[Rfam]
RNA sequence: CUGGGAUUCGGCGAUGGGACCCGCCUGAACUUGUUUCGAACCGCACACUGCUGAUAGUUCCUACACACGA
Numbered sequence: 001c002u003g004g005g006a007u008u009c010g011g012c013g014a015u016g017g018g019a020c021c022c023g024c025c026u027g028a029a030c031u032u033g034u035u036u037c038g039a040a041c042c043g044c045a046c047a048c049u050g051c052u053g054a055u056a057g058u059u060c061c062u063a064c065a066c067a068c069g070a
Stems, first nucleotide, its partner, number of pairs: 010025004016061005043051002
The family of this 70-nucleotide sequence is "Fluoride riboswitch aptamer (crcB RNA motif)".
A reference for the family is Baker et al. (2012), "Widespread genetic switches and toxicity resistance proteins for fluoride", Science.